A member of the RNA family "Bacterial large signal recognition particle RNA" from Senegalia massiliensis, 265 nucleotides long. For this family Rfam cites "SRPDB: Signal Recognition Particle Database" (Rosenblad et al., Nucleic Acids Res, 2003). It is annotated as a non-coding RNA gene.

RNA sequence: CCGUGAUAGAUGGGGAGGUAGCGGUGCCUUGUAACCUGCAAUCCGCUAUAGCAGGAUCGAAUUCCUAGUUGAGGCCUAACUUGUUAGGGUCUGCCUUAGGUAAGUGGUGUUGACGAUUGGGUCCUACGCAACGGAAAUUCAUGAAUCCCGUCAGGUCUGGAAGGAAGCAGCGGUAAGUGAACACUUUCGUGUGCCGUAGGGAAACCUGGUCCGAGCUAACUGCCUAGGUAACGCCUGGUUAGUUAUGUCGAUUCUAGGUUCACGG
Numbered sequence: 001c002c003g004u005g006a007u008a009g010a011u012g013g014g015g016a017g018g019u020a021g022c023g024g025u026g027c028c029u030u031g032u033a034a035c036c037u038g039c040a041a042u043c044c045g046c047u048a049u050a051g052c053a054g055g056a057u058c059g060a061a062u063u064c065c066u067a068g069u070u071g072a073g074g075c076c077u078a079a080c081u082u083g084u085u086a087g088g089g090u091c092u093g094c095c096u097u098a099g100g101u102a103a104g105u106g107g108u109g110u111u112g113a114c115g116a117u118u119g120g121g122u123c124c125u126a127c128g129c130a131a132c133g134g135a136a137a138u139u140c141a142u143g144a145a146u147c148c149c150g151u152c153a154g155g156u157c158u159g160g161a162a163g164g165a166a167g168c169a170g171c172g173g174u175a176a177g178u179g180a181a182c183a184c185u186u187u188c189g190u191g192u193g194c195c196g197u198a199g200g201g202a203a204a205c206c207u208g209g210u211c212c213g214a215g216c217u218a219a220c221u222g223c224c225u226a227g228g229u230a231a232c233g234c235c236u237g238g239u240u241a242g243u244u245a246u247g248u249c250g251a252u253u254c255u256a257g258g259u260u261c262a263c264g265g
Stems, first nucleotide, its partner, number of pairs: 001265006009058003012030004017025001019023001035055005064258005073249003077245001079243003083239006092230002096227006104220002106217003115211008123200006129191002132189005138181005148173004156165003